[Rfam]
This 103-nucleotide sequence belongs to the Rfam family "c-di-GMP-II-GAG riboswitch aptamer". The family is grouped with related families in Rfam's "c-di-GMP_II riboswitch clan". The literature on the family includes a 2017 paper in Proc Natl Acad Sci U S A by Weinberg et al., "Bioinformatic analysis of riboswitch structures uncovers variant classes with altered ligand specificity".
RNA sequence: UUGAAAUGGCGAGGCGAUGACCCCGGGGGCAGCACGGUCACCCCGCCCUUCACCGAAGGGCGAACCCCCGGUCGAGCCAGAGGUGAGACCGGCGCCGCACCCC
Numbered sequence: 001u002u003g004a005a006a007u008g009g010c011g012a013g014g015c016g017a018u019g020a021c022c023c024c025g026g027g028g029g030c031a032g033c034a035c036g037g038u039c040a041c042c043c044c045g046c047c048c049u050u051c052a053c054c055g056a057a058g059g060g061c062g063a064a065c066c067c068c069c070g071g072u073c074g075a076g077c078c079a080g081a082g083g084u085g086a087g088a089c090c091g092g093c094g095c096c097g098c099a100c101c102c103c
Base pairs, nucleotide, nucleotide: 003102007097008096009095010094011093013078014077015076023071024070025069026068027067028066029065036090037089038086039085040084041083042082